[Rfam]
RNA sequence: AAUAGUUGUGAUGAGCCUUCAGACCUGUAUUGAUUUGUGCAAAUGAUGUAAAAUUUCUUAGAACAUCUAAGUGACUGAACUUUA
Numbered sequence: 001a002a003u004a005g006u007u008g009u010g011a012u013g014a015g016c017c018u019u020c021a022g023a024c025c026u027g028u029a030u031u032g033a034u035u036u037g038u039g040c041a042a043a044u045g046a047u048g049u050a051a052a053a054u055u056u057c058u059u060a061g062a063a064c065a066u067c068u069a070a071g072u073g074a075c076u077g078a079a080c081u082u083u084a
Stems, first nucleotide, its partner, number of pairs: 002083001004081003
RNA: Small nucleolar RNA SNORD25